[Rfam]
RNA sequence: CCCUCGCUCAACAAAUCGCCAUUCGAAGCUAACGCACAGAGACACCCGGCUUCGGCCAGCGUCUCGUCAUUCUAUUGCUUUGGGAGAAAGUCCCCGGACGUCUCUCUUCGGGGAGCUUGCGGAAACGCGCCGCCAUAGAAGCACUGCGGCUGACCUUUGGCGCCUUGGCCUUCUUCGUGGACCAUUCGCCCUACCCGUCGCCACAUCCGCGUCUUGCGAGUCUUGCUUUGGAACCUAGUUGCAUCUCUCAGCCCCUUUGGAUGAAGAUAUGAGUCCGCGUUGGGAUGGUGUGGUUGGGACUUCCGGCGCUAGACGAGCAGGUUCGGAUGACGGGUAGCCGUGGGUGACAUGGAGUGUGGCAUCGGGUACUGAGGAUAUUUUGUCGAGGUUGAUAGGUAUGCGAUUGCUCGGUUUACCGGGUUACUCGACGGGGCUUAUUCUUGAGGCGAGG
Numbered sequence: 001c002c003c004u005c006g007c008u009c010a011a012c013a014a015a016u017c018g019c020c021a022u023u024c025g026a027a028g029c030u031a032a033c034g035c036a037c038a039g040a041g042a043c044a045c046c047c048g049g050c051u052u053c054g055g056c057c058a059g060c061g062u063c064u065c066g067u068c069a070u071u072c073u074a075u076u077g078c079u080u081u082g083g084g085a086g087a088a089a090g091u092c093c094c095c096g097g098a099c100g101u102c103u104c105u106c107u108u109c110g111g112g113g114a115g116c117u118u119g120c121g122g123a124a125a126c127g128c129g130c131c132g133c134c135a136u137a138g139a140a141g142c143a144c145u146g147c148g149g150c151u152g153a154c155c156u157u158u159g160g161c162g163c164c165u166u167g168g169c170c171u172u173c174u175u176c177g178u179g180g181a182c183c184a185u186u187c188g189c190c191c192u193a194c195c196c197g198u199c200g201c202c203a204c205a206u207c208c209g210c211g212u213c214u215u216g217c218g219a220g221u222c223u224u225g226c227u228u229u230g231g232a233a234c235c236u237a238g239u240u241g242c243a244u245c246u247c248u249c250a251g252c253c254c255c256u257u258u259g260g261a262u263g264a265a266g267a268u269a270u271g272a273g274u275c276c277g278c279g280u281u282g283g284g285a286u287g288g289u290g291u292g293g294u295u296g297g298g299a300c301u302u303c304c305g306g307c308g309c310u311a312g313a314c315g316a317g318c319a320g321g322u323u324c325g326g327a328u329g330a331c332g333g334g335u336a337g338c339c340g341u342g343g344g345u346g347a348c349a350u351g352g353a354g355u356g357u358g359g360c361a362u363c364g365g366g367u368a369c370u371g372a373g374g375a376u377a378u379u380u381u382g383u384c385g386a387g388g389u390u391g392a393u394a395g396g397u398a399u400g401c402g403a404u405u406g407c408u409c410g411g412u413u414u415a416c417c418g419g420g421u422u423a424c425u426c427g428a429c430g431g432g433g434c435u436u437a438u439u440c441u442u443g444a445g446g447c448g449a450g451g
Stems, first nucleotide, its partner, number of pairs: 002451006008444004014405006023084001024082006039065005045059001088436003092433004118129004241376001247373005253366003261362002347357004407420005
Rfam assigns this 451-nucleotide sequence from Metarhizium majus to the family "RNase MRP". The match comes from Rfam's covariance-model search (98 bits). The family has 66 seed sequences and 3,510 matches in Rfam 15.1. Pairs were carried over by alignment from the consensus structure, which is taken from published work. The organism belongs to Metarhizium majus, within Eukaryota. RNase MRP is an enzymatically active ribonucleoprotein with two distinct roles in eukaryotes. In mitochondria it plays a direct role in the initiation of mitochondrial DNA replication. Rfam classes the family as a ribozyme. For this family Rfam cites "Secondary structure of RNase MRP RNA as predicted by phylogenetic comparison" (Schmitt et al., FASEB J, 1993).